[Rfam]
Overview: Rfam assigns this 82-nucleotide sequence from Castellaniella defragrans to the family "Proteo-phage-1 RNA". NCBI's taxonomy places the organism under Bacteria, Pseudomonadota, Betaproteobacteria, Castellaniella, Castellaniella defragrans. The family's RNA type in Rfam is small RNA. The family's consensus secondary structure is taken from published work.
RNA sequence: CCCUUGCUGGGGGGCCGGUUCGCCGGAUGGCCAGCCGUGGAUUAGACGGUGAGUGCCACGUUUCAGGAAAACCCCGUCAGCC
Numbered sequence: 001c002c003c004u005u006g007c008u009g010g011g012g013g014g015c016c017g018g019u020u021c022g023c024c025g026g027a028u029g030g031c032c033a034g035c036c037g038u039g040g041a042u043u044a045g046a047c048g049g050u051g052a053g054u055g056c057c058a059c060g061u062u063u064c065a066g067g068a069a070a071a072c073c074c075c076g077u078c079a080g081c082c
Stems, first nucleotide, its partner, number of pairs: 002014003007034004016025003036060005045078005
About this RNA
The match comes from Rfam's covariance-model search (69 bits).